[Rfam]
RNA: Drosophila melanogaster stable intronic sequence RNA 1
Organism: Drosophila sechellia
RNA sequence: ACUUCUUUUUAUUUAUUUCUGUUUUUAAAACUACGAUUAAGAAUCAGCUGUAUGCGUGGUGUCUUGUGAUCAGCUCAUUAAGCCCACUUAGUUAUGCUACGCUGUAUUUGUGACUAAACUCGGGUGGUGGUUUGGGUAUGGUAAACGCUGCAAUAACAAAACUAGUUUCAGUCAAGGACAUUAACUUUGGCUACGUUGGUCCAACCGAAUACGGACAAUACUAAUGGAUUCAGAAGAGCUUGUGCAAGUCAGAGUUUGAAAUGAAGUUGUGUCACAAACAAUCGAAACGUUGAUAGAUCGAUUCCGGAUUAUACAGCAAGAAUAUUAUGCAAUUUUCUUUCAAACAUGAUCAAUGAAUAAAAAGAAACUGUUCACAUAAUGCAAGCGACUUAACC
Numbered sequence: 001a002c003u004u005c006u007u008u009u010u011a012u013u014u015a016u017u018u019c020u021g022u023u024u025u026u027a028a029a030a031c032u033a034c035g036a037u038u039a040a041g042a043a044u045c046a047g048c049u050g051u052a053u054g055c056g057u058g059g060u061g062u063c064u065u066g067u068g069a070u071c072a073g074c075u076c077a078u079u080a081a082g083c084c085c086a087c088u089u090a091g092u093u094a095u096g097c098u099a100c101g102c103u104g105u106a107u108u109u110g111u112g113a114c115u116a117a118a119c120u121c122g123g124g125u126g127g128u129g130g131u132u133u134g135g136g137u138a139u140g141g142u143a144a145a146c147g148c149u150g151c152a153a154u155a156a157c158a159a160a161a162c163u164a165g166u167u168u169c170a171g172u173c174a175a176g177g178a179c180a181u182u183a184a185c186u187u188u189g190g191c192u193a194c195g196u197u198g199g200u201c202c203a204a205c206c207g208a209a210u211a212c213g214g215a216c217a218a219u220a221c222u223a224a225u226g227g228a229u230u231c232a233g234a235a236g237a238g239c240u241u242g243u244g245c246a247a248g249u250c251a252g253a254g255u256u257u258g259a260a261a262u263g264a265a266g267u268u269g270u271g272u273c274a275c276a277a278a279c280a281a282u283c284g285a286a287a288c289g290u291u292g293a294u295a296g297a298u299c300g301a302u303u304c305c306g307g308a309u310u311a312u313a314c315a316g317c318a319a320g321a322a323u324a325u326u327a328u329g330c331a332a333u334u335u336u337c338u339u340u341c342a343a344a345c346a347u348g349a350u351c352a353a354u355g356a357a358u359a360a361a362a363a364g365a366a367a368c369u370g371u372u373c374a375c376a377u378a379a380u381g382c383a384a385g386c387g388a389c390u391u392a393a394c395c
Stems, first nucleotide, its partner, number of pairs: 003366015020035003041230002044228002047225001050216002054102009065091001073083003104212007112201006122169003128164006136151002140149003170192008231263002236257006266350007306317001322328002